[Rfam]
RNA sequence: GUACAAUAAAGAUGUAUUACUUGUAUAGAAACAUAAUUGGUUGAUUCGUCUCUACCCGCUGACCGUAAAUUAGCGGACUACAAGUAAAUCUUUUUACGUU
Numbered sequence: 001g002u003a004c005a006a007u008a009a010a011g012a013u014g015u016a017u018u019a020c021u022u023g024u025a026u027a028g029a030a031a032c033a034u035a036a037u038u039g040g041u042u043g044a045u046u047c048g049u050c051u052c053u054a055c056c057c058g059c060u061g062a063c064c065g066u067a068a069a070u071u072a073g074c075g076g077a078c079u080a081c082a083a084g085u086a087a088a089u090c091u092u093u094u095u096a097c098g099u100u
Stems, first nucleotide, its partner, number of pairs: 018086008028047003032043002056076007
RNA: Purine riboswitch aptamer
Organism: Amedibacterium intestinale